[Rfam]
RNA sequence: GCAGCAUUGAUGAUGAAACACUCUUAUUGUUAUCCUUGCACUUUGAUUUAUCGUGAAGAAACUCAUGGGGAAUAGUGUUCCUGAAAUGCUU
Numbered sequence: 001g002c003a004g005c006a007u008u009g010a011u012g013a014u015g016a017a018a019c020a021c022u023c024u025u026a027u028u029g030u031u032a033u034c035c036u037u038g039c040a041c042u043u044u045g046a047u048u049u050a051u052c053g054u055g056a057a058g059a060a061a062c063u064c065a066u067g068g069g070g071a072a073u074a075g076u077g078u079u080c081c082u083g084a085a086a087u088g089c090u091u
Stems, first nucleotide, its partner, number of pairs: 003090006